[Rfam]
The record is a 77-nucleotide RNA from Parnassius apollo, which matches "Mammalian CPEB3 ribozyme" in Rfam. About the family: The mammalian CPEB3 ribozyme is a self cleaving RNA located in the second intron of the CPEB3 gene which belongs to a family of genes regulating messenger RNA polyadenylation. The base pairs follow the family's consensus structure, which is taken from published work. Taxonomically the source falls in Parnassius (Eukaryota, Bilateria, Amphiesmenoptera, Parnassini).
RNA sequence: UUUAUCAUGUUGGGGGUCAUUGUAGAAGCGUGCUCGUCGCGACCCCUGCCAGCUCUUUUCAGGGCUGCAAUUCUACA
Numbered sequence: 001u002u003u004a005u006c007a008u009g010u011u012g013g014g015g016g017u018c019a020u021u022g023u024a025g026a027a028g029c030g031u032g033c034u035c036g037u038c039g040c041g042a043c044c045c046c047u048g049c050c051a052g053c054u055c056u057u058u059u060c061a062g063g064g065c066u067g068c069a070a071u072u073c074u075a076c077a
Stems, first nucleotide, its partner, number of pairs: 013046006021077007028040003050067007